[Rfam]
RNA sequence: UGCAUCUGUGAUGAUGAUUUGGCUCCCUCUACUGAAGCCUUUGAGGAAAACCGCCAACUUGUUACCCAAAUUCUUUCUGAGGUGUU
Numbered sequence: 001u002g003c004a005u006c007u008g009u010g011a012u013g014a015u016g017a018u019u020u021g022g023c024u025c026c027c028u029c030u031a032c033u034g035a036a037g038c039c040u041u042u043g044a045g046g047a048a049a050a051c052c053g054c055c056a057a058c059u060u061g062u063u064a065c066c067c068a069a070a071u072u073c074u075u076u077c078u079g080a081g082g083u084g085u086u
Stems, first nucleotide, its partner, number of pairs: 002085005
Dot-bracket structure: .(((((..........................................................................))))).